[Rfam]
RNA sequence: UGGCUCGAUUUCCUGGGGGGUGGGCUCAGCCUGCCCUGCCUCCCCUCAGACGAGCCUAAAGUAGAGAGGCCAGGCUUCCUUCCCCAUGGGAGAGGUGGUUAAGAAAGGAGCCUCGCCUGGACUGAUCUCGCCUCACAUUU
Numbered sequence: 001u002g003g004c005u006c007g008a009u010u011u012c013c014u015g016g017g018g019g020g021u022g023g024g025c026u027c028a029g030c031c032u033g034c035c036c037u038g039c040c041u042c043c044c045c046u047c048a049g050a051c052g053a054g055c056c057u058a059a060a061g062u063a064g065a066g067a068g069g070c071c072a073g074g075c076u077u078c079c080u081u082c083c084c085c086a087u088g089g090g091a092g093a094g095g096u097g098g099u100u101a102a103g104a105a106a107g108g109a110g111c112c113u114c115g116c117c118u119g120g121a122c123u124g125a126u127c128u129c130g131c132c133u134c135a136c137a138u139u140u
Stems, first nucleotide, its partner, number of pairs: 002056006015044010066134005072128003079120002088113003
Small Cajal body specific RNA 21: a 140-nucleotide RNA sequence from Pteropus alecto. The family's RNA type in Rfam is small Cajal body RNA. Its family is annotated with Cajal body, RNA processing and nucleolus in the Gene Ontology. NCBI's taxonomy places the organism under Eukaryota, Opisthokonta, Metazoa, Yinpterochiroptera, Pteropus. Pairs were carried over by alignment from the consensus structure, which was predicted with RNAalifold. Rfam's curators write: scaRNAs are a specific class of small nuclear RNAs which localise to the Cajal bodies and guide the modification of RNA polymerase II transcribed spliceosomal RNAs U1, U2, U4, U5 and U12. ACA68 (SCARNA21) is a member of the H/ACA class of snoRNAs that guide the sites of modification of uridines to pseudouridines. This snoRNA was identified by computational screening and its expression in mouse experimentally verified by Northern blot and primer extension analysis. A reference for the family is Darzacq et al. (2002), "Cajal body-specific small nuclear RNAs: a novel class of 2'-O-methylation and pseudouridylation guide RNAs", EMBO J. The match comes from Rfam's covariance-model search (145 bits).